[Rfam]
RNA sequence: CCUAUUGUUCCGUCAAUAGUAGCCUACGGUCACGUGCGUCGCUCAAAAGGCGGGGUGCGAAGCUGGCCGGACAAAGUAGCCCUUCCGCAAUGAGAAGCCCGAACCGCGAUGGAACGGCAACUGCUCUUAGCACAAAAGAGUCGGGGAA
Numbered sequence: 001c002c003u004a005u006u007g008u009u010c011c012g013u014c015a016a017u018a019g020u021a022g023c024c025u026a027c028g029g030u031c032a033c034g035u036g037c038g039u040c041g042c043u044c045a046a047a048a049g050g051c052g053g054g055g056u057g058c059g060a061a062g063c064u065g066g067c068c069g070g071a072c073a074a075a076g077u078a079g080c081c082c083u084u085c086c087g088c089a090a091u092g093a094g095a096a097g098c099c100c101g102a103a104c105c106g107c108g109a110u111g112g113a114a115c116g117g118c119a120a121c122u123g124c125u126c127u128u129a130g131c132a133c134a135a136a137a138g139a140g141u142c143g144g145g146g147a148a
Stems, first nucleotide, its partner, number of pairs: 002019006028068005033059005039053004083094003097118003104111001123141006
Dot-bracket structure: .((((((......))))))........((((((((((.((((.......)))).)))))....)))))..............(((......)))..(((....(......)....)))....((((((.......)))))).......
Group II catalytic intron D1-D4-7: a 148-nucleotide RNA. For this family Rfam cites "Control of branch-site choice by a group II intron" (Chu et al., EMBO J, 2001). From the family's description: Group II introns are found in rRNA, tRNA and mRNA of organelles in fungi, plants and protists, and also in mRNA in bacteria.